Rfam assigns this 93-nucleotide RNA from Theobroma cacao to the family "Small nucleolar RNA snoR8a". The match comes from Rfam's covariance-model search (41 bits). For this family Rfam cites "Multiple snoRNA gene clusters from Arabidopsis" (Brown et al., RNA, 2001). By type it is a C/D-box small nucleolar RNA.
[Rfam]
RNA sequence: UAGUUAGCAAUGAUCAUAAAAAUAAUUCUUUGUUCUGACUUACUUAAUUUGAUAAUGACAAACUUCUUAUUGUAACUAUAGAAUCUGAGCUAU
Numbered sequence: 001u002a003g004u005u006a007g008c009a010a011u012g013a014u015c016a017u018a019a020a021a022a023u024a025a026u027u028c029u030u031u032g033u034u035c036u037g038a039c040u041u042a043c044u045u046a047a048u049u050u051g052a053u054a055a056u057g058a059c060a061a062a063c064u065u066c067u068u069a070u071u072g073u074a075a076c077u078a079u080a081g082a083a084u085c086u087g088a089g090c091u092a093u
Stems, first nucleotide, its partner, number of pairs: 003093002006091002
Dot-bracket structure: ..((.((..................................................................................))))